RNA sequence: UGUGCAAUGAUGAGGUUAUGAAAUUGGUGUGCAGUGGCGAUUUUAAUUGCCGUGAGCUUUUUUCACCAAAUUAUACGACUUCUUCUUCCUCUGAGCUCA
Numbered sequence: 001u002g003u004g005c006a007a008u009g010a011u012g013a014g015g016u017u018a019u020g021a022a023a024u025u026g027g028u029g030u031g032c033a034g035u036g037g038c039g040a041u042u043u044u045a046a047u048u049g050c051c052g053u054g055a056g057c058u059u060u061u062u063u064c065a066c067c068a069a070a071u072u073a074u075a076c077g078a079c080u081u082c083u084u085c086u087u088c089c090u091c092u093g094a095g096c097u098c099a
Base pairs, nucleotide, nucleotide: 001099002098004096005095
This 99-nucleotide RNA from Dendrobium nobile belongs to the Rfam family "Small nucleolar RNA Z152/R70/R12/". A reference for the family is Barneche et al. (2001), "Identification of 66 box C/D snoRNAs in Arabidopsis thaliana: extensive gene duplications generated multiple isoforms predicting new ribosomal RNA 2'-O-methylation sites", J Mol Biol. The base pairs follow the family's consensus structure, which was predicted with PFOLD. The source organism's lineage runs through Eukaryota, Viridiplantae, Streptophytina, Spermatophyta and Dendrobium. Its family is annotated with nucleolus and RNA processing in the Gene Ontology.